[Rfam]
RNA sequence: CGAUGCUCAGGGCAAACCAGUAGAAAUGCUGGGACGCAAAGCCACGGGUCUAAGGACGAAAGUCGAUGACAGCCGGGUUGCCAUG
Numbered sequence: 001c002g003a004u005g006c007u008c009a010g011g012g013c014a015a016a017c018c019a020g021u022a023g024a025a026a027u028g029c030u031g032g033g034a035c036g037c038a039a040a041g042c043c044a045c046g047g048g049u050c051u052a053a054g055g056a057c058g059a060a061a062g063u064c065g066a067u068g069a070c071a072g073c074c075g076g077g078u079u080g081c082c083a084u085g
Base pairs, nucleotide, nucleotide: 012037013036017032018031019030020029021028022027040079041078042077043076045075046074047073048070049069050068055064056063057062